[Rfam]
RNA sequence: UUUGCAAGCUCAAGGCCACAGCACAAGUGCUUAUGGCAUGGCCCUGUCUGAUUUAAACAAAUCUGCAAAUACUACU
Number, nucleotide and partner (000 for none) at each position: 001u000002u000003u000004g000005c000006a000007a000008g000009c000010u000011c000012a000013a000014g043015g042016c041017c040018a000019c000020a076021g075022c000023a073024c000025a000026a070027g039028u038029g037030c000031u000032u000033a000034u000035g000036g000037c029038a028039u027040g017041g016042c015043c014044c000045u000046g000047u000048c065049u000050g063051a062052u061053u060054u059055a000056a000057a000058c000059a054060a053061a052062u051063c050064u000065g048066c000067a000068a000069a000070u026071a000072c000073u023074a000075c021076u020